[Rfam]
Nucleotides: 110
Base pairs, nucleotide, nucleotide: 046103047102048101049100050099051098057091059089060088061087065083066082067081068080
Number, partner (000 for none) and nucleotide at each position: 001000g002000a003000u004000a005000a006000a007000u008000u009000a010000a011000a012000u013000g014000u015000c016000a017000g018000u019000g020000g021000g022000a023000c024000u025000a026000c027000a028000g029000a030000a031000c032000u033000c034000a035000u036000a037000u038000a039000u040000a041000g042000a043000a044000u045000a046103g047102u048101g049100u050099u051098g052000c053000c054000a055000u056000c057091a058000c059089c060088u061087c062000u063000g064000g065083u066082u067081u068080c069000a070000u071000c072000a073000a074000u075000a076000u077000a078000a079000c080068g081067a082066g083065a084000c085000u086000u087061g088060a089059g090000u091057u092000g093000a094000a095000u096000a097000a098051c099050a100049a101048c102047a103046c104000a105000a106000u107000a108000u109000u110000u